[Rfam]
RNA sequence: AAUAUAUUAGGACCGUCGGUCUACUGAUCAAACAUCACCCGCUCGGUGGAAAAUCUUCCCUUUGUCGU
Numbered sequence: 001a002a003u004a005u006a007u008u009a010g011g012a013c014c015g016u017c018g019g020u021c022u023a024c025u026g027a028u029c030a031a032a033c034a035u036c037a038c039c040c041g042c043u044c045g046g047u048g049g050a051a052a053a054u055c056u057u058c059c060c061u062u063u064g065u066c067g068u
Base pairs, nucleotide, nucleotide: 004065005064006063010059011058012057015054016053020050021049022048023047024046025045026044027043029041
A member of the RNA family "mir-2774 microRNA precursor family" from Bombyx mori, 68 nucleotides long. Lineage of the source: Eukaryota > Eumetazoa > Insecta > Pterygota > Bombyx. Pairs were carried over by alignment from the consensus structure, which was predicted with RNAalifold. A reference for the family is Liu et al. (2010), "MicroRNAs of Bombyx mori identified by Solexa sequencing", BMC Genomics.